[Rfam]
RNA sequence: UUGCCAGUCAAGUUCCUGGCAGGAGUCCAGCUAACAGCUGGCUCCAGACUCUAGCCAGGGACUUGACUUCAAA
Numbered sequence: 001u002u003g004c005c006a007g008u009c010a011a012g013u014u015c016c017u018g019g020c021a022g023g024a025g026u027c028c029a030g031c032u033a034a035c036a037g038c039u040g041g042c043u044c045c046a047g048a049c050u051c052u053a054g055c056c057a058g059g060g061a062c063u064u065g066a067c068u069u070c071a072a073a
Base pairs, nucleotide, nucleotide: 007067008066009065011063012062013060014059017057018056019055020054022052023051024050027041028040029039030038031037
Shown here is a 73-nucleotide RNA sequence from Nannospalax galili, a member of the family "mir-344 microRNA precursor family".
Gene Ontology terms of the family: RISC complex and miRNA-mediated post-transcriptional gene silencing.
Pairs were carried over by alignment from the consensus structure, which was predicted with RNAalifold.
A search with the family's covariance model found it, with a score of 65 bits.
The source organism's lineage runs through Eukaryota, Bilateria, Mammalia, Euarchontoglires and Nannospalax.